[Rfam]
RNA: BsrF
Organism: Heyndrickxia oleronia
RNA sequence: GCGAUGAGCUAUUUGUGUAAGUCGAGGACUUAGCUAUUUGGCUAAACAUACGAAUGUGGUCGUAUGGGUACCUCGCCGCAAACGUGUUUUAAAAGACGCCUACGGAUUUAGGCGUCUUUU
Numbered sequence: 001g002c003g004a005u006g007a008g009c010u011a012u013u014u015g016u017g018u019a020a021g022u023c024g025a026g027g028a029c030u031u032a033g034c035u036a037u038u039u040g041g042c043u044a045a046a047c048a049u050a051c052g053a054a055u056g057u058g059g060u061c062g063u064a065u066g067g068g069u070a071c072c073u074c075g076c077c078g079c080a081a082a083c084g085u086g087u088u089u090u091a092a093a094a095g096a097c098g099c100c101u102a103c104g105g106a107u108u109u110a111g112g113c114g115u116c117u118u119u120u
Stems, first nucleotide, its partner, number of pairs: 013081005023075005028069003033042002047066002050063003091120012